Overview: Rfam assigns this 133-nucleotide RNA sequence to the family "TPP riboswitch aptamer (THI element)".
[Rfam]
Nucleotides: 133
Stems, first nucleotide, its partner, number of pairs: 006121004011082004016076001017069005088113003094107004
Number, partner (000 for none) and nucleotide at each position: 001000a002000g003000u004000a005000a006121g007120c008119a009118c010000c011082a012081g013080g014079g015000g016076u017069g018068c019067u020066u021065g022000c023000c024000c025000u026000u027000u028000c029000u030000u031000u032000c033000c034000a035000g036000g037000g038000c039000c040000g041000c042000g043000u044000g045000c046000u047000u048000g049000u050000u051000a052000g053000g054000a055000a056000a057000g058000a059000u060000u061000g062000g063000u064000g065021c066020g067019g068018g069017c070000u071000g072000a073000g074000a075000a076016a077000g078000u079014c080013c081012c082011u083000u084000u085000g086000a087000a088113c089112c090111u091000g092000a093000c094107c095106a096105g097104g098000g099000u100000a101000a102000u103000g104097c105096c106095u107094g108000c109000g110000a111090a112089g113088g114000g115000a116000g117000c118009g119008u120007g121006c122000u123000a124000u125000g126000c127000u128000u129000g130000u131000u132000u133000u